[Rfam]
RNA sequence: GCUGGCACAAUGAUGAUUUCCUUUAGCCGUUUACCCAUCUGAAUGUGUGAUGUGUAUUUCCAAUUCUGAGGUGCCAGU
Dot-bracket structure: (((((((................................................................)))))))

This 78-nucleotide RNA sequence from Pantherophis guttatus belongs to the Rfam family "Small nucleolar RNA SNORD87". Rfam links the family to the GO terms nucleolus and RNA processing.